[Rfam]
RNA sequence: CUUGAGCGAGCCCAGCCACAGCGGCAGUUCGUCGUUGUGUUCCUGGCCGUAGGUGGCCAGCAGUGCCUGUGCCUC
Numbered sequence: 001c002u003u004g005a006g007c008g009a010g011c012c013c014a015g016c017c018a019c020a021g022c023g024g025c026a027g028u029u030c031g032u033c034g035u036u037g038u039g040u041u042c043c044u045g046g047c048c049g050u051a052g053g054u055g056g057c058c059a060g061c062a063g064u065g066c067c068u069g070u071g072c073c074u075c
Base pairs, nucleotide, nucleotide: 015025016024017023033069038065039064043060044059045058047056048055049054